[Rfam]
RNA sequence: GAAACGGGAAGCCCGCAGGGGGAGGCGCCAGCCGCUCGGACCCCGUAAGACGAGCACCUCCGCCCGGUAACGGGCGGAUGCC
Dot-bracket structure: ..........((.((..((((...................))))......)).))...((((((((....))))))))....